This 82-nucleotide sequence from Odocoileus virginianus belongs to the Rfam family "Small nucleolar RNA U2-19". The base pairs follow the family's consensus structure, which is taken from published work. Gene Ontology terms of the family: RNA processing and nucleolus. By type it is a C/D-box small nucleolar RNA. The source organism's lineage runs through Eukaryota, Vertebrata, Gnathostomata, Laurasiatheria and Odocoileus virginianus. A search with the family's covariance model found it, with a score of 76 bits.
[Rfam]
RNA sequence: GCAAGAUGAUGAAGAUAGCCUAAUCUGAGCAUCAGGAAAGACCCCUUAGUCUGCCUGAUGCAUGAUCUCUAUAGUUCUGAGA
Numbered sequence: 001g002c003a004a005g006a007u008g009a010u011g012a013a014g015a016u017a018g019c020c021u022a023a024u025c026u027g028a029g030c031a032u033c034a035g036g037a038a039a040g041a042c043c044c045c046u047u048a049g050u051c052u053g054c055c056u057g058a059u060g061c062a063u064g065a066u067c068u069c070u071a072u073a074g075u076u077c078u079g080a081g082a
Stems, first nucleotide, its partner, number of pairs: 029061005039052004